[Rfam]
RNA: Small nucleolar RNA Z182
Organism: Oryza punctata
RNA sequence: GGUAUGCCCAUGAUGAAAUGUUUCAACCUGUGUAAGGAUUAGAGACACUGGGCAUGUAUUCUCACUAGGCCUUUUUUUUUCUGAGGCAUAUU
Number, nucleotide and partner (000 for none) at each position: 001g000002g000003u090004a089005u088006g087007c086008c085009c000010a000011u000012g000013a000014u000015g000016a000017a000018a000019u000020g000021u000022u000023u000024c000025a000026a000027c000028c000029u000030g000031u000032g000033u000034a000035a000036g000037g000038a000039u000040u000041a000042g000043a000044g000045a000046c000047a000048c000049u000050g000051g000052g000053c000054a000055u000056g000057u000058a000059u000060u000061c000062u000063c000064a000065c000066u000067a000068g000069g000070c000071c000072u000073u000074u000075u000076u000077u000078u000079u000080u000081c000082u000083g000084a000085g008086g007087c006088a005089u004090a003091u000092u000